[Rfam]
RNA sequence: AACCACACUAUCAAUGAAUGGAUUUACCUAUGAGAUAACGUGCUUGUUCCACCUAAGAUGAGAACGUGGCAUCCUAUUAAUUUCGUGCAAUGGCUGAUAAUUGGAUGCCAUGUCCUCGUCCUAAGUGGUACAGCCACGUCAUAUCACAGGUGAAUCCAUUCAUUGAUAGUGUGGUU
Numbered sequence: 001a002a003c004c005a006c007a008c009u010a011u012c013a014a015u016g017a018a019u020g021g022a023u024u025u026a027c028c029u030a031u032g033a034g035a036u037a038a039c040g041u042g043c044u045u046g047u048u049c050c051a052c053c054u055a056a057g058a059u060g061a062g063a064a065c066g067u068g069g070c071a072u073c074c075u076a077u078u079a080a081u082u083u084c085g086u087g088c089a090a091u092g093g094c095u096g097a098u099a100a101u102u103g104g105a106u107g108c109c110a111u112g113u114c115c116u117c118g119u120c121c122u123a124a125g126u127g128g129u130a131c132a133g134c135c136a137c138g139u140c141a142u143a144u145c146a147c148a149g150g151u152g153a154a155u156c157c158a159u160u161c162a163u164u165g166a167u168a169g170u171g172u173g174g175u176u
Stems, first nucleotide, its partner, number of pairs: 001176007009168007017160003021156008031146003035142002038139002041136002044133004051126002054123002057120002064113002069108006076101004086097001
The family of this 176-nucleotide RNA sequence from Oryza meridionalis is "MIR807 microRNA precursor family". The base pairs follow the family's consensus structure, which was predicted with WAR. A search with the family's covariance model found it, with a score of 148 bits.